Small nucleolar RNA snoR136: a 151-nucleotide RNA from Oryza meridionalis. Its family is annotated with nucleolus and RNA processing in the Gene Ontology. The literature on the family includes a 2009 paper in Nucleic Acids Res by Chen and Wu, "Mining small RNA sequencing data: a new approach to identify small nucleolar RNAs in Arabidopsis".
RNA sequence: UUUGUGUCUCGGCUUCUCUCAGAUCUAAUCGUGCCUUCGGAUGAAUUUGUGGUUCGUGGGCAAUGGUGAGAUGUGAAGCAAAAGCAAAGUGUUCCUCUCGCUAUCCAGCGCGGAAUUUGUUGAUGCGAUUGGACGUCGAGGAUCUACAUCU
Numbered sequence: 001u002u003u004g005u006g007u008c009u010c011g012g013c014u015u016c017u018c019u020c021a022g023a024u025c026u027a028a029u030c031g032u033g034c035c036u037u038c039g040g041a042u043g044a045a046u047u048u049g050u051g052g053u054u055c056g057u058g059g060g061c062a063a064u065g066g067u068g069a070g071a072u073g074u075g076a077a078g079c080a081a082a083a084g085c086a087a088a089g090u091g092u093u094c095c096u097c098u099c100g101c102u103a104u105c106c107a108g109c110g111c112g113g114a115a116u117u118u119g120u121u122g123a124u125g126c127g128a129u130u131g132g133a134c135g136u137c138g139a140g141g142a143u144c145u146a147c148a149u150c151u
Stems, first nucleotide, its partner, number of pairs: 001083002003080003008075001010073002013070001016068001020065002032062005038056001040055002091144001093142005099135002104133005115121001